[Rfam]
RNA: SAH (S-adenosyl-L-homocysteine) riboswitch aptamer
RNA sequence: UCGCCCAAGGAGCGUUGCAGCGGCUUCCCGCCACAGGAGAGGCCGUCAGGCUUGGGCACGGUAUGCACCGCAUGCCCCAUCGCAACGACGCUCACCUGUU
Numbered sequence: 001u002c003g004c005c006c007a008a009g010g011a012g013c014g015u016u017g018c019a020g021c022g023g024c025u026u027c028c029c030g031c032c033a034c035a036g037g038a039g040a041g042g043c044c045g046u047c048a049g050g051c052u053u054g055g056g057c058a059c060g061g062u063a064u065g066c067a068c069c070g071c072a073u074g075c076c077c078c079a080u081c082g083c084a085a086c087g088a089c090g091c092u093c094a095c096c097u098g099u100u
Base pairs, nucleotide, nucleotide: 003057004056005055006054007053008052021045022044023043024042025041026040